A member of the RNA family "6S / SsrS RNA" from Streptococcus thermophilus, 196 nucleotides long. The source organism's lineage runs through Bacteria, Bacillota, Bacilli, Streptococcus and Streptococcus thermophilus. By type it is a non-coding RNA gene.

[Rfam]
RNA sequence: AAAUUGCUGUGGUAUACGAAUCCACAUAUAAGUGUUGACCGACUAAUUUUUGUAUUAUCGGGAGACAGAGGUCUAUUAACAGUGUGCAGGCUGGCUCACCCAGAAGCAACUGAAGUUAGUAGCGAGUCGCCCACCUGCUUUUUUACGUCGCGGGUUCAAUACAAACUGUGGAUCAUCGGUACCAAUACAGCAUCCA
Dot-bracket structure: ..(.(((((((((((.(((............(((((((((...................(((.(((.......(((((((.....((...((((.....))))..)).......)))))))....))).)))....................)).))))))).............)))))))...))))))))...

Rfam's curators write: E. coli 6S RNA was the first non coding RNA to be sequenced, but its function was unknown until recently.